[Rfam]
RNA: small nucleolar RNA snoR137
Organism: Spirodela intermedia
Nucleotides: 136
Stems, first nucleotide, its partner, number of pairs: 003062006020049001021047007074129004079124001086116003090112005
Number, partner (000 for none) and nucleotide at each position: 001000g002000u003062u004061g005060c006059u007058u008057c009000u010000u011000u012000c013000u014000u015000g016000g017000a018000u019000g020049a021047u022046g023045a024044c025043c026042c027041a028000c029000u030000u031000u032000g033000a034000c035000u036000u037000g038000u039000u040000a041027u042026g043025g044024g045023u046022c047021a048000g049020u050000a051000a052000u053000g054000a055000a056000g057008g058007a059006a060005g061004c062003a063000u064000a065000c066000a067000c068000u069000g070000a071000g072000a073000c074129c075128c076127a077126g078000u079124a080000u081000u082000u083000a084000a085000c086116a087115g088114c089000a090112u091111g092110a093109u094108g095000c096000u097000c098000a099000u100000u101000c102000u103000u104000g105000u106000g107000g108094c109093a110092u111091c112090g113000u114088g115087u116086u117000a118000c119000c120000u121000g122000u123000c124079u125000u126077c127076u128075g129074g130000u131000a132000a133000a134000u135000u136000a